RNA sequence: AUACUUACCUGGCAGGGGAGACACCAUGAUCAGGCAGGUGGUUUUCCCAGGGCAAGGCUCAUCCCUUGCACUCCGGGUGUGCUGACCCCAGCGAUUUCCCCAAAUGCGGGAAACUCGAUUUUCUUUUGCCCAGAGAGGUGGUGGAGUCUCCUUCCCUGGA
Numbered sequence: 001a002u003a004c005u006u007a008c009c010u011g012g013c014a015g016g017g018g019a020g021a022c023a024c025c026a027u028g029a030u031c032a033g034g035c036a037g038g039u040g041g042u043u044u045u046c047c048c049a050g051g052g053c054a055a056g057g058c059u060c061a062u063c064c065c066u067u068g069c070a071c072u073c074c075g076g077g078u079g080u081g082c083u084g085a086c087c088c089c090a091g092c093g094a095u096u097u098c099c100c101c102a103a104a105u106g107c108g109g110g111a112a113a114c115u116c117g118a119u120u121u122u123c124u125u126u127u128g129c130c131c132a133g134a135g136a137g138g139u140g141g142u143g144g145a146g147u148c149u150c151c152u153u154c155c156c157u158g159g160a
Stems, first nucleotide, its partner, number of pairs: 012122001014120002016048006023042005050089003056083003060079005092117003095113003099109002136157003140154001143151003
Shown here is a 160-nucleotide RNA from Struthio camelus, a member of the family "U1 spliceosomal RNA". From the family's description: U1 is a small nuclear RNA (snRNA) component of the spliceosome (involved in pre-mRNA splicing). Its 5' end forms complementary base pairs with the 5' splice junction, thus defining the 5' donor site of an intron. There are significant differences in sequence and secondary structure between metazoan and yeast U1 snRNAs, the latter being much longer (568 nucleotides as compared to 164 nucleotides in human). For this family Rfam cites "Crystal structure at 1.92 A resolution of the RNA-binding domain of the U1A spliceosomal protein complexed with an RNA hairpin" (Oubridge et al., Nature, 1994). The match comes from Rfam's covariance-model search (100 bits). By type it is a spliceosomal small nuclear RNA. The family's consensus secondary structure is taken from published work.